RNA sequence: UGGCGCCUGCCAGGAGAGAGCCCCCCAGCGGGGCCGCCGAAGGCGCAGGCAGCGGCCGAACGCUCAGGCAAAAGGACUGGCAACGCGCG
Number, nucleotide and partner (000 for none) at each position: 001u000002g000003g000004c000005g000006c000007c000008u082009g081010c080011c079012a078013g077014g000015a000016g000017a000018g000019a000020g034021c033022c032023c031024c000025c000026c000027a000028g000029c000030g000031g023032g022033g021034c020035c000036g069037c068038c067039g065040a064041a000042g000043g063044c062045g061046c000047a000048g000049g056050c055051a000052g000053c000054g000055g050056c049057c000058g000059a000060a000061c045062g044063c043064u040065c039066a000067g038068g037069c036070a000071a000072a000073a000074g000075g000076a000077c013078u012079g011080g010081c009082a008083a000084c000085g000086c000087g000088c000089g000
RNA: Glycine riboswitch aptamer